[Rfam]
RNA sequence: ACUGCUCAAAGGACUUUGCUGCAAAUUUGAGUAUGUUUGCAGCAAAGUCCUUUGAGCAGUU
Dot-bracket structure: ((((((((((((((((((((((((((........)))))))))))))))))))))))))).
Annotation:
Shown here is a 61-nucleotide RNA sequence from Caenorhabditis elegans, a member of the family "mir-8186 microRNA precursor family". Taxonomically the source falls in Caenorhabditis (Eukaryota, Protostomia, Chromadorea, Rhabditida). The base pairs follow the family's consensus structure, which was predicted with RNAalifold. Rfam's curators put it in the seed alignment.